[Rfam]
RNA sequence: CGUAAUUGGACCUAAAACGGCCUGAGGUAGAGGGGUUUUAGUCGGUAGGUCCGAGGACUCCUUCCUCGGGAAUCCGACACUACCCAGUCGUACGGACGGCUGGGUGUCUUUUGAACAUUUCCCCUCUUCCACG
Numbered sequence: 001c002g003u004a005a006u007u008g009g010a011c012c013u014a015a016a017a018c019g020g021c022c023u024g025a026g027g028u029a030g031a032g033g034g035g036u037u038u039u040a041g042u043c044g045g046u047a048g049g050u051c052c053g054a055g056g057a058c059u060c061c062u063u064c065c066u067c068g069g070g071a072a073u074c075c076g077a078c079a080c081u082a083c084c085c086a087g088u089c090g091u092a093c094g095g096a097c098g099g100c101u102g103g104g105u106g107u108c109u110u111u112u113g114a115a116c117a118u119u120u121c122c123c124c125u126c127u128u129c130c131a132c133g
Base pairs, nucleotide, nucleotide: 001133002132003131026130027129029127030126032123033122034121041078042077043076044075045074050070051069052068053067054066055065056064057063080106082105083104084103085102086101
The record is a 133-nucleotide sequence from Agrilus planipennis, which matches "R2 RNA element" in Rfam. The base pairs follow the family's consensus structure, which is taken from published work. A search with the family's covariance model found it, with a score of 40 bits. Rfam links the family to the GO term regulation of reverse transcription. Taxonomically the source falls in Agrilus (Eukaryota, Arthropoda, Polyphaga, Buprestoidea). By type it is a cis-regulatory element. About the family: This family represents the 3' UTR region of the R2 retrotransposable element. This family is known to interact with the R2-encoded reverse transcriptase in a reaction known as target primed reverse transcription (TPRT). For this family Rfam cites "Reverse transcription of R2Bm RNA is primed by a nick at the chromosomal target site: a mechanism for non-LTR retrotransposition" (Luan et al., Cell, 1993).